[Rfam]
A member of the RNA family "SAM (S-adenosyl methionine) riboswitch aptamer" from Sphaerimonospora thailandensis, 119 nucleotides long.
The family is grouped with related families in Rfam's "SAM clan".
Rfam describes the family as follows. SAM-IV is a mRNA element that regulates gene expression via direct sensing of S-adenosylmethionine (SAM or AdoMet).
RNA sequence: GGUCACGAAGCCGAUCGCGCCCCUGGACGAUCGUCGGCUGGCAACCUCGCCUCACCGCGCAAGGUGCCCUCCAGGGAAGACCUGGCCGCUGCCGGCAUCGGCAGUGGCAAGCGCGGAUC
Numbered sequence: 001g002g003u004c005a006c007g008a009a010g011c012c013g014a015u016c017g018c019g020c021c022c023c024u025g026g027a028c029g030a031u032c033g034u035c036g037g038c039u040g041g042c043a044a045c046c047u048c049g050c051c052u053c054a055c056c057g058c059g060c061a062a063g064g065u066g067c068c069c070u071c072c073a074g075g076g077a078a079g080a081c082c083u084g085g086c087c088g089c090u091g092c093c094g095g096c097a098u099c100g101g102c103a104g105u106g107g108c109a110a111g112c113g114c115g116g117a118u119c
Base pairs, nucleotide, nucleotide: 001082002081003080004079009039010038011037012036013035014034015033040068041067042066045064046063047062049060050059085108086107087106088105089104090103091102092101093100094099